[Rfam]
Plant small nucleolar RNA R71: a 106-nucleotide sequence from Morus notabilis.
Rfam 15.1 lists 278,378 matches to the family in 216 species.
The match comes from Rfam's covariance-model search (52 bits).
Taxonomically the source falls in Morus (Eukaryota, Streptophyta, rosids, Rosales).
The literature on the family includes a 2003 paper in Trends Plant Sci by Brown et al., "Plant snoRNAs: functional evolution and new modes of gene expression".
The family's consensus secondary structure was predicted with PFOLD.
RNA sequence: AGACCGUGAUGAGGACAUCUUCUCAGUAACUCUUUAUAUCUCUCUCAUGCUUCAUAUAGAGUUUCACCUUCAUAUUAAGCAAAAUUGUUGAUCUCAAUGCGCAUCU
Numbered sequence: 001a002g003a004c005c006g007u008g009a010u011g012a013g014g015a016c017a018u019c020u021u022c023u024c025a026g027u028a029a030c031u032c033u034u035u036a037u038a039u040c041u042c043u044c045u046c047a048u049g050c051u052u053c054a055u056a057u058a059g060a061g062u063u064u065c066a067c068c069u070u071c072a073u074a075u076u077a078a079g080c081a082a083a084a085u086u087g088u089u090g091a092u093c094u095c096a097a098u099g100c101g102c103a104u105c106u
Stems, first nucleotide, its partner, number of pairs: 001106001003104001005101002057074002